[Rfam]
mir-283 microRNA precursor family: a 91-nucleotide RNA sequence from Dinoponera quadriceps. Its family is annotated with RISC complex and miRNA-mediated post-transcriptional gene silencing in the Gene Ontology. The family is grouped with related families in Rfam's "mir-216 clan". A reference for the family is Skalsky et al. (2010), "Identification of microRNAs expressed in two mosquito vectors, Aedes albopictus and Culex quinquefasciatus", BMC Genomics.

RNA sequence: CUAUCCGGUGGUGUAAUCAAAUAUCAGCUGGUAAUUCUGGGGAUUGUGACGGUAGCCCAGGAUUCUUGCUGGUAUCUGGCUACGAACUGGA
Numbered sequence: 001c002u003a004u005c006c007g008g009u010g011g012u013g014u015a016a017u018c019a020a021a022u023a024u025c026a027g028c029u030g031g032u033a034a035u036u037c038u039g040g041g042g043a044u045u046g047u048g049a050c051g052g053u054a055g056c057c058c059a060g061g062a063u064u065c066u067u068g069c070u071g072g073u074a075u076c077u078g079g080c081u082a083c084g085a086a087c088u089g090g091a
Stems, first nucleotide, its partner, number of pairs: 013083003017079002021075008030066002034063008